[Rfam]
RNA sequence: AAGCGACCGAACUCAAGUGCCGGAAAUCGGGGUGAGAUCCGGCAGCGCAGGAUCCGCGUAAGACGGAGCCAGACGCCCCCGAGAGUCGCUCCGGGCCUGCCCAUAUGC
Numbered sequence: 001a002a003g004c005g006a007c008c009g010a011a012c013u014c015a016a017g018u019g020c021c022g023g024a025a026a027u028c029g030g031g032g033u034g035a036g037a038u039c040c041g042g043c044a045g046c047g048c049a050g051g052a053u054c055c056g057c058g059u060a061a062g063a064c065g066g067a068g069c070c071a072g073a074c075g076c077c078c079c080c081g082a083g084a085g086u087c088g089c090u091c092c093g094g095g096c097c098u099g100c101c102c103a104u105a106u107g108c
Stems, first nucleotide, its partner, number of pairs: 003089005020042004028034001045076003054066003093102003
RNA: Mycobacterium sRNA ncrMT1302
Organism: Mycobacterium kansasii